[Rfam]
RNA sequence: GGCGGUUCUCAGGUGACACACCUGGAAUCAGGCUCUCUCCUCUCUGGUUCAAGGUGUGUCACCCGAGAACCACA
Number, nucleotide and partner (000 for none) at each position: 001g000002g073003c000004g000005g070006u069007u068008c067009u066010c065011a000012g063013g062014u061015g060016a059017c058018a000019c056020a055021c054022c053023u052024g000025g050026a049027a048028u047029c046030a045031g044032g043033c000034u000035c000036u000037c000038u000039c000040c000041u000042c000043u032044c031045u030046g029047g028048u027049u026050c025051a000052a023053g022054g021055u020056g019057u000058g017059u016060c015061a014062c013063c012064c000065g010066a009067g008068a007069a006070c005071c000072a000073c002074a000